Rfam assigns this 63-nucleotide RNA from Pelosinus fermentans to the family "Fluoride riboswitch aptamer (crcB RNA motif)". NCBI's taxonomy places the organism under Bacteria, Negativicutes, Selenomonadales, Sporomusaceae, Pelosinus fermentans.
Nucleotides: 063
Stems, first nucleotide, its partner, number of pairs: 010025004016054006033044004
Number, partner (000 for none) and nucleotide at each position: 001000a002000g003000g004000a005000a006000a007000a008000u009000g010025g011024g012023c013022g014000a015000u016054g017053g018052g019051g020050u021049u022013c023012g024011c025010c026000a027000u028000u029000a030000a031000a032000u033044c034043u035042g036041c037000u038000g039000a040000u041036g042035c043034a044033g045000u046000a047000a048000u049021g050020a051019c052018u053017c054016c055000u056000a057000c058000c059000a060000a061000u062000a063000u